[Rfam]
RNA sequence: UUAAAAAUGAAUAUUUUGCCGUAGACAGUAGGUGCAUUGCUUAAUAUCCUACCGAGGUUUUGUAUAAAUGAAGCGAUAUGCAAAAGUUGCAUGUUAUAUAAAGCUUUUAAAAACAAAAGACCUCUUUAGUCUAUGGACCUAAGGGGUCUUUGUUUUUAUCA
Numbered sequence: 001u002u003a004a005a006a007a008u009g010a011a012u013a014u015u016u017u018g019c020c021g022u023a024g025a026c027a028g029u030a031g032g033u034g035c036a037u038u039g040c041u042u043a044a045u046a047u048c049c050u051a052c053c054g055a056g057g058u059u060u061u062g063u064a065u066a067a068a069u070g071a072a073g074c075g076a077u078a079u080g081c082a083a084a085a086g087u088u089g090c091a092u093g094u095u096a097u098a099u100a101a102a103g104c105u106u107u108u109a110a111a112a113a114c115a116a117a118a119g120a121c122c123u124c125u126u127u128a129g130u131c132u133a134u135g136g137a138c139c140u141a142a143g144g145g146g147u148c149u150u151u152g153u154u155u156u157u158a159u160c161a
Base pairs, nucleotide, nucleotide: 028052029051030050031049032048034040035039119148120147121146122145123144124143125142126141
The record is a 161-nucleotide RNA sequence from Andreesenella acetica, which matches "Ribosomal protein L10 leader" in Rfam. A search with the family's covariance model found it, with a score of 70 bits. A reference for the family is Zengel and Lindahl (1994), "Diverse mechanisms for regulating ribosomal protein synthesis in Escherichia coli", Prog Nucleic Acid Res Mol Biol. The family's RNA type in Rfam is cis-regulatory leader. This family is a putative r-protein leader autoregulatory structure found in B. subtilis and other low-GC Gram-positive bacteria.